Shown here is an 80-nucleotide RNA from Medicago truncatula, a member of the family "MIR5269 microRNA precursor family". Pairs were carried over by alignment from the consensus structure, which was predicted with RNAalifold. Its family is annotated with RISC complex and miRNA-mediated post-transcriptional gene silencing in the Gene Ontology. The organism belongs to Medicago, within Eukaryota.
RNA sequence: UUGGGUUAAAUCAAUGUGGGUCAUACACUUUGGAAAUGGAACUUACAUAAAGUGGUGGGGUAUGGAUUGAUUUUAUCCAA
Numbered sequence: 001u002u003g004g005g006u007u008a009a010a011u012c013a014a015u016g017u018g019g020g021u022c023a024u025a026c027a028c029u030u031u032g033g034a035a036a037u038g039g040a041a042c043u044u045a046c047a048u049a050a051a052g053u054g055g056u057g058g059g060g061u062a063u064g065g066a067u068u069g070a071u072u073u074u075a076u077c078c079a080a
Base pairs, nucleotide, nucleotide: 001080002079003078004077005076006075008073009072010071011070012069013068014067015066017064018063024057025056026054027053028052029051030050031049032048

Record summary
The family has 2 seed sequences and 389 matches in Rfam 15.1.